[Rfam]
RNA sequence: GAAGUAAAUAAUAUCUUAACCUGUAUAUGCUAGAAAUAUGGUCUAGUGUCUCUACGUCUUACCAUUAAAUAAGACUCUAUAGGUUAAUGCUUUGGGCAU
Numbered sequence: 001g002a003a004g005u006a007a008a009u010a011a012u013a014u015c016u017u018a019a020c021c022u023g024u025a026u027a028u029g030c031u032a033g034a035a036a037u038a039u040g041g042u043c044u045a046g047u048g049u050c051u052c053u054a055c056g057u058c059u060u061a062c063c064a065u066u067a068a069a070u071a072a073g074a075c076u077c078u079a080u081a082g083g084u085u086a087a088u089g090c091u092u093u094g095g096g097c098a099u
Stems, first nucleotide, its partner, number of pairs: 018085008029047006056075006

This 99-nucleotide RNA sequence from Spiroplasma syrphidicola belongs to the Rfam family "Purine riboswitch aptamer".
The family's consensus secondary structure is taken from published work.
The match comes from Rfam's covariance-model search (58 bits).